[Rfam]
RNA sequence: AAAAACGCUUUCUAGGGUUCCGUGUUCAUCAUGAACAGUCUGGUCCAAGAGAAGGCGCACAGGAUCAAUUGAUGCUGUGACACGGAGGGAUAAAAGCCCGGGAGGU
Numbered sequence: 001a002a003a004a005a006c007g008c009u010u011u012c013u014a015g016g017g018u019u020c021c022g023u024g025u026u027c028a029u030c031a032u033g034a035a036c037a038g039u040c041u042g043g044u045c046c047a048a049g050a051g052a053a054g055g056c057g058c059a060c061a062g063g064a065u066c067a068a069u070u071g072a073u074g075c076u077g078u079g080a081c082a083c084g085g086a087g088g089g090a091u092a093a094a095a096g097c098c099c100g101g102g103a104g105g106u
Base pairs, nucleotide, nucleotide: 007056008055009054010053011052012051015046016045020043021042022040023037024036025035026034027033028032058079059078060077061076062075064073065072081101083104087099088098089097